[Rfam]
RNA sequence: UUAGUAAAUCAGAUAGUCGCACCCGGGUUAUACCGGUUGAGGAAAGUCCGAGCUCCACAGAGCAUGGUGCCGGGUAACGCCCGGUGGAGGCAACUUUAAGGCAAGUGCAACAGAAAGUAUACCGCCAGCAAUGGUAAGGAUGAAAGGGUGAGGUAAGAGCUCACCAGUGGUGUGGUGACACAUCAGCUAUGUAAACCCCACCUGGAGCAAGACCAAGAACGGAUUUUAAAAGACGGCUGCUCGUCGUUAUCCUAAGGUAGGUCGCUAGAAUUUAUUGGUAACAAUAAAUCGAGAUAGAUGACUAUUUAAACAGAACUCGGCUUAUAGAUUUAGUAAACCA
Numbered sequence: 001u002u003a004g005u006a007a008a009u010c011a012g013a014u015a016g017u018c019g020c021a022c023c024c025g026g027g028u029u030a031u032a033c034c035g036g037u038u039g040a041g042g043a044a045a046g047u048c049c050g051a052g053c054u055c056c057a058c059a060g061a062g063c064a065u066g067g068u069g070c071c072g073g074g075u076a077a078c079g080c081c082c083g084g085u086g087g088a089g090g091c092a093a094c095u096u097u098a099a100g101g102c103a104a105g106u107g108c109a110a111c112a113g114a115a116a117g118u119a120u121a122c123c124g125c126c127a128g129c130a131a132u133g134g135u136a137a138g139g140a141u142g143a144a145a146g147g148g149u150g151a152g153g154u155a156a157g158a159g160c161u162c163a164c165c166a167g168u169g170g171u172g173u174g175g176u177g178a179c180a181c182a183u184c185a186g187c188u189a190u191g192u193a194a195a196c197c198c199c200a201c202c203u204g205g206a207g208c209a210a211g212a213c214c215a216a217g218a219a220c221g222g223a224u225u226u227u228a229a230a231a232g233a234c235g236g237c238u239g240c241u242c243g244u245c246g247u248u249a250u251c252c253u254a255a256g257g258u259a260g261g262u263c264g265c266u267a268g269a270a271u272u273u274a275u276u277g278g279u280a281a282c283a284a285u286a287a288a289u290c291g292a293g294a295u296a297g298a299u300g301a302c303u304a305u306u307u308a309a310a311c312a313g314a315a316c317u318c319g320g321c322u323u324a325u326a327g328a329u330u331u332a333g334u335a336a337a338c339c340a
Stems, first nucleotide, its partner, number of pairs: 001336003005332006011325001012306007020039002023036004044323003048320005053207004060242004066202004070084005085099001086097004100198002105196002107192003122139002124135004147165006167187001168185007211263004221252004233247005270289008
A member of the RNA family "Bacterial RNase P class A" from Acetobacterium bakii, 340 nucleotides long.
About the family: Ribonuclease P (RNase P) is a ubiquitous endoribonuclease, found in archaea, bacteria and eukarya as well as chloroplasts and mitochondria.
Rfam links the family to the GO terms ribonuclease P activity, dimeric ribonuclease P complex and tRNA processing.
The source organism's lineage runs through Bacteria, Clostridia, Eubacteriales, Eubacteriaceae and Acetobacterium.
It scores 284 bits against the family's covariance model.